[Rfam]
RNA sequence: UCCUGUAUCGAAAGUGAGCGUGGCGUGCUCGUCGCCAUGGUCAUCGAUAGUACAGGAAGAGCAACCUGCGAGCCUUUCCCGUGUUUGAAGGAUCAUCUGUUCCUAUCAGACCCUGGCGCUCCCAGACA
Numbered sequence: 001u002c003c004u005g006u007a008u009c010g011a012a013a014g015u016g017a018g019c020g021u022g023g024c025g026u027g028c029u030c031g032u033c034g035c036c037a038u039g040g041u042c043a044u045c046g047a048u049a050g051u052a053c054a055g056g057a058a059g060a061g062c063a064a065c066c067u068g069c070g071a072g073c074c075u076u077u078c079c080c081g082u083g084u085u086u087g088a089a090g091g092a093u094c095a096u097c098u099g100u101u102c103c104u105a106u107c108a109g110a111c112c113c114u115g116g117c118g119c120u121c122c123c124a125g126a127c128a
Stems, first nucleotide, its partner, number of pairs: 001057008014044004019039002022036004065125001067124002070121004083111005089104004